RNA: Small nucleolar RNA snoR53Y
RNA sequence: GUUCCCUGUGAUGCUUUACUUUUUAAACCAUGCUAAUACUGAUCACAUGAUGAUUGAUCUUCAACUCUUGUCUCUGAGGGAACU
Number, nucleotide and partner (000 for none) at each position: 001g083002u082003u081004c080005c079006c078007u077008g000009u000010g000011a000012u000013g000014c000015u000016u000017u000018a000019c000020u000021u000022u000023u000024u000025a000026a000027a000028c000029c000030a000031u000032g000033c000034u000035a000036a000037u000038a000039c000040u000041g000042a000043u000044c000045a000046c000047a000048u000049g000050a000051u000052g000053a000054u000055u000056g000057a000058u000059c000060u000061u000062c000063a000064a000065c000066u000067c000068u000069u000070g000071u000072c000073u000074c000075u000076g000077a007078g006079g005080g004081a003082a002083c001084u000